RNA sequence: CAGCAGCGGCGCAGGUAUUCCAAAAGCGUUUAAAAAAUGAACAGCCCGUACUGGACUGACGCCGAUCCGGGGCGAUACUUCCCCUACUGACAUGGCAUUUCCCCCGAUGCCAGGCCAGCCGAAGGCAUCCGUGGAACGCCUGCCUUCGCUUACUCCUAAAUGCUUUUGACCCGGUUUCCUCCCCCAGACUCCGG
Numbered sequence: 001c002a003g004c005a006g007c008g009g010c011g012c013a014g015g016u017a018u019u020c021c022a023a024a025a026g027c028g029u030u031u032a033a034a035a036a037a038u039g040a041a042c043a044g045c046c047c048g049u050a051c052u053g054g055a056c057u058g059a060c061g062c063c064g065a066u067c068c069g070g071g072g073c074g075a076u077a078c079u080u081c082c083c084c085u086a087c088u089g090a091c092a093u094g095g096c097a098u099u100u101c102c103c104c105c106g107a108u109g110c111c112a113g114g115c116c117a118g119c120c121g122a123a124g125g126c127a128u129c130c131g132u133g134g135a136a137c138g139c140c141u142g143c144c145u146u147c148g149c150u151u152a153c154u155c156c157u158a159a160a161u162g163c164u165u166u167u168g169a170c171c172c173g174g175u176u177u178c179c180u181c182c183c184c185c186a187g188a189c190u191c192c193g194g
Stems, first nucleotide, its partner, number of pairs: 039165002042162002087118003091114001094111001096109003121147007129138001171194004177188002
RNA: RgsA sRNA
Organism: Azotobacter chroococcum